[Rfam]
RNA sequence: GAGAAGAAGAAGAAGGAGAGGGAGGAGGAUAAGAAGGAGGAGCUCCUUAGCUCCUCCUUCUCCUUCUUCUUCCUCCUUCUUCCUC
Numbered sequence: 001g002a003g004a005a006g007a008a009g010a011a012g013a014a015g016g017a018g019a020g021g022g023a024g025g026a027g028g029a030u031a032a033g034a035a036g037g038a039g040g041a042g043c044u045c046c047u048u049a050g051c052u053c054c055u056c057c058u059u060c061u062c063c064u065u066c067u068u069c070u071u072c073c074u075c076c077u078u079c080u081u082c083c084u085c
Base pairs, nucleotide, nucleotide: 004081005080006079007078008077009076012075013074015072017070018069019068020067021066022065023064024063025062026061028059036057037056038055039054040053041052042051043050044049
Overview: Rfam assigns this 85-nucleotide sequence from Hordeum vulgare to the family "mir-877 microRNA precursor family". The organism belongs to Hordeum vulgare, within Eukaryota.